The family of this 107-nucleotide sequence is "Termite-flg RNA". Pairs were carried over by alignment from the consensus structure, which is taken from published work. By type it is a cis-regulatory element.
RNA sequence: GGCCGUUUCGUUCCGUACGGCGGCCUAUUUUGGGGGAGGAGGCGCGAAACCGCCCCCAGGAGAACCGCUUUCGCGGGACGGUCCCGGCAUGGAUGGCCGGGACAAGA
Numbered sequence: 001g002g003c004c005g006u007u008u009c010g011u012u013c014c015g016u017a018c019g020g021c022g023g024c025c026u027a028u029u030u031u032g033g034g035g036g037a038g039g040a041g042g043c044g045c046g047a048a049a050c051c052g053c054c055c056c057c058a059g060g061a062g063a064a065c066c067g068c069u070u071u072c073g074c075g076g077g078a079c080g081g082u083c084c085c086g087g088c089a090u091g092g093a094u095g096g097c098c099g100g101g102a103c104a105a106g107a
Base pairs, nucleotide, nucleotide: 009080010079011078012077013076014075015074016073020068021067022066023065029061030060031058032057033056034055035054036053038051039050081103082102083101084100085099086098087097088096